[Rfam]
RNA: Singlet oxygen resistance RNA X
RNA sequence: AUCCCGCCGGUGAUCGGGUUCAUCACCACCUCCCUGUUGGACUUGCCCGGGCCAAUUUGCCCGGGCUUUUUU
Numbered sequence: 001a002u003c004c005c006g007c008c009g010g011u012g013a014u015c016g017g018g019u020u021c022a023u024c025a026c027c028a029c030c031u032c033c034c035u036g037u038u039g040g041a042c043u044u045g046c047c048c049g050g051g052c053c054a055a056u057u058u059g060c061c062c063g064g065g066c067u068u069u070u071u072u
Stems, first nucleotide, its partner, number of pairs: 009027006045066008